[Rfam]
RNA: Small nucleolar RNA Z247
RNA sequence: CCCCUCGGCGAUGAAGAGCUGGUGUCCUACAGCCUCGCCGGGCUCGACGUCGACUUCAACCCCGUCGUCUCCGCUGUGCUCGCCAGGGUCGAACCGAUCUCGGUGUGAGAGUUGUACGCGCAGCUCUUAGGCUUCGAGC
Numbered sequence: 001c002c003c004c005u006c007g008g009c010g011a012u013g014a015a016g017a018g019c020u021g022g023u024g025u026c027c028u029a030c031a032g033c034c035u036c037g038c039c040g041g042g043c044u045c046g047a048c049g050u051c052g053a054c055u056u057c058a059a060c061c062c063c064g065u066c067g068u069c070u071c072c073g074c075u076g077u078g079c080u081c082g083c084c085a086g087g088g089u090c091g092a093a094c095c096g097a098u099c100u101c102g103g104u105g106u107g108a109g110a111g112u113u114g115u116a117c118g119c120g121c122a123g124c125u126c127u128u129a130g131g132c133u134u135c136g137a138g139c
Stems, first nucleotide, its partner, number of pairs: 004138005089108003093104002